[Rfam]
RNA sequence: GCGAGCAACUCUGGAGAGACCGGUAAAACCCGGCGCCGAAGGUGCACGAAUCGCCCACCCCACCGCGGGACGCGUUUCAAAACUCUCAGGCAAAAGGACAGAGGGGCGCCU
Numbered sequence: 001g002c003g004a005g006c007a008a009c010u011c012u013g014g015a016g017a018g019a020c021c022g023g024u025a026a027a028a029c030c031c032g033g034c035g036c037c038g039a040a041g042g043u044g045c046a047c048g049a050a051u052c053g054c055c056c057a058c059c060c061c062a063c064c065g066c067g068g069g070a071c072g073c074g075u076u077u078c079a080a081a082a083c084u085c086u087c088a089g090g091c092a093a094a095a096g097g098a099c100a101g102a103g104g105g106g107c108g109c110c111u
Stems, first nucleotide, its partner, number of pairs: 006106001009103005020033004035091003038087002042085001044083001048078002
Rfam assigns this 111-nucleotide RNA sequence from Montanilutibacter psychrotolerans to the family "Glycine riboswitch aptamer". The pairing is the family consensus, mapped onto this sequence. It scores 66 bits against the family's covariance model.